[Rfam]
RNA sequence: GGUCUCGCGAGGGAUCGUGGGGAGGAAGAUGGAGAUCAAAACUGUGAGCCGACGAACAGAAAUCGCAUAUAAGGCUGAGGAGGUGGAUGAGGUUGCCCAGCAUGCCGAAGUCCGGGGCAAUACCUCUACGGUAAAUGCGGCGGUUGUGCAGCGGAAGUCUGUGUU
Numbered sequence: 001g002g003u004c005u006c007g008c009g010a011g012g013g014a015u016c017g018u019g020g021g022g023a024g025g026a027a028g029a030u031g032g033a034g035a036u037c038a039a040a041a042c043u044g045u046g047a048g049c050c051g052a053c054g055a056a057c058a059g060a061a062a063u064c065g066c067a068u069a070u071a072a073g074g075c076u077g078a079g080g081a082g083g084u085g086g087a088u089g090a091g092g093u094u095g096c097c098c099a100g101c102a103u104g105c106c107g108a109a110g111u112c113c114g115g116g117g118c119a120a121u122a123c124c125u126c127u128a129c130g131g132u133a134a135a136u137g138c139g140g141c142g143g144u145u146g147u148g149c150a151g152c153g154g155a156a157g158u159c160u161g162u163g164u165u
Stems, first nucleotide, its partner, number of pairs: 001016006028165004037157001042151005047145005063140006074132003079127006085113004091106003
Source information:
A member of the RNA family "Group II catalytic intron D1-D4-3" from Pontiella desulfatans, 165 nucleotides long. The match comes from Rfam's covariance-model search (120 bits). Taxonomically the source falls in Pontiella (Bacteria, Pseudomonadati, Kiritimatiellia, Kiritimatiellales).